Rfam assigns this 97-nucleotide RNA sequence from Calidifontibacillus erzurumensis to the family "Glycine riboswitch aptamer". NCBI's taxonomy places the organism under Bacteria, Bacillati, Bacillota, Caryophanales, Calidifontibacillus. The match comes from Rfam's covariance-model search (69 bits).
RNA sequence: AAGACUGCAGUGGGAGAGAACGUACAUAGUGCGUCGCCGAAGGGGCAAAUCUUCAUUGGAAGAUGAAUCUCUCAGGUAAAAGGACUACUGUAGGACG
Numbered sequence: 001a002a003g004a005c006u007g008c009a010g011u012g013g014g015a016g017a018g019a020a021c022g023u024a025c026a027u028a029g030u031g032c033g034u035c036g037c038c039g040a041a042g043g044g045g046c047a048a049a050u051c052u053u054c055a056u057u058g059g060a061a062g063a064u065g066a067a068u069c070u071c072u073c074a075g076g077u078a079a080a081a082g083g084a085c086u087a088c089u090g091u092a093g094g095a096c097g
Stems, first nucleotide, its partner, number of pairs: 006092008020034004036077003039073002043071003049064004